[Rfam]
RNA sequence: AGGGGCUUGUGGGAGCUUCUUUACACUCCAGAACUGAAAGGAGAUACUACUGCUGGUUCAUGAAAACCUAUGGCUGCAUUCUCUAUACUGAAAUUUUGUAUACAAACUAUGGGUUUGCAUGAACUUGGAGAAGUGUUUGCUUUUAUCUUUUCUGGCCUUGGAGUGAAGGGAGCUCUCAUAACCGAUCUA
Dot-bracket structure: ............((((((((...(((((((...................((.(.(...((((....(.............................................)....))))...).).))............................)))))))..))))))))..............
RNA: MIR159 microRNA precursor family
Organism: Vitis vinifera